Rfam assigns this 151-nucleotide sequence from Rosa chinensis to the family "small nucleolar RNA snoR135". On this family, see Chen and Wu, Nucleic Acids Res 2009: "Mining small RNA sequencing data: a new approach to identify small nucleolar RNAs in Arabidopsis". Lineage of the source: Eukaryota > Streptophytina > Embryophyta > rosids > Rosa. Its family is annotated with RNA processing and nucleolus in the Gene Ontology.
RNA sequence: AUAGCAUGGAUUAUGUGUAUGAGUGUAGUGCUAUAAGCACGAACAUUGAUCCCCGAGAAUUCUCUGCAAUAUUGAUUUGGGGAAGAUGUGUGCAAUUAGUUGAUUUUAUUUUAACCUAUCAAAAUUUUCAACAAUCAUCGAUCUCAUCCUU
Numbered sequence: 001a002u003a004g005c006a007u008g009g010a011u012u013a014u015g016u017g018u019a020u021g022a023g024u025g026u027a028g029u030g031c032u033a034u035a036a037g038c039a040c041g042a043a044c045a046u047u048g049a050u051c052c053c054c055g056a057g058a059a060u061u062c063u064c065u066g067c068a069a070u071a072u073u074g075a076u077u078u079g080g081g082g083a084a085g086a087u088g089u090g091u092g093c094a095a096u097u098a099g100u101u102g103a104u105u106u107u108a109u110u111u112u113a114a115c116c117u118a119u120c121a122a123a124a125u126u127u128u129c130a131a132c133a134a135u136c137a138u139c140g141a142u143c144u145c146a147u148c149c150u151u
Base pairs, nucleotide, nucleotide: 004067005066006065008063009062010061015044016043018041020039079145080144081143082142085139086138087137088136099132100131101130102129